RNA: HTH-XRE RNA
RNA sequence: GAUCAGCUAUUGUCAGGGCAGUGAGAGACAGUACUGCGACGGAACUCCUGGCAGGAAGGCUUGCAAAGGUGAUUUCCCUUUC
Numbered sequence: 001g002a003u004c005a006g007c008u009a010u011u012g013u014c015a016g017g018g019c020a021g022u023g024a025g026a027g028a029c030a031g032u033a034c035u036g037c038g039a040c041g042g043a044a045c046u047c048c049u050g051g052c053a054g055g056a057a058g059g060c061u062u063g064c065a066a067a068g069g070u071g072a073u074u075u076c077c078c079u080u081u082c
Base pairs, nucleotide, nucleotide: 011053012052013051014050015049016048017047018037019036020035021034022033023032